The family of this 80-nucleotide RNA from Mus musculus is "mir-3473 microRNA precursor family". Pairs were carried over by alignment from the consensus structure, which was predicted with RNAalifold.
RNA sequence: ACCGCUGAGCCAUCUCUCCAGCCCUAUUUAUUUAUUCUUAAGAAUUAUUUAAUUUGGGGCUAGAGAGAUGGCUCAGCGGU
Numbered sequence: 001a002c003c004g005c006u007g008a009g010c011c012a013u014c015u016c017u018c019c020a021g022c023c024c025u026a027u028u029u030a031u032u033u034a035u036u037c038u039u040a041a042g043a044a045u046u047a048u049u050u051a052a053u054u055u056g057g058g059g060c061u062a063g064a065g066a067g068a069u070g071g072c073u074c075a076g077c078g079g080u
Stems, first nucleotide, its partner, number of pairs: 002079017020061005
The match comes from Rfam's covariance-model search (74 bits).
Rfam 15.1 lists 1,094 matches to the family in 20 species.
The organism belongs to Mus, within Eukaryota.
Gene Ontology terms of the family: RISC complex, miRNA-mediated post-transcriptional gene silencing and cellular response to mechanical stimulus.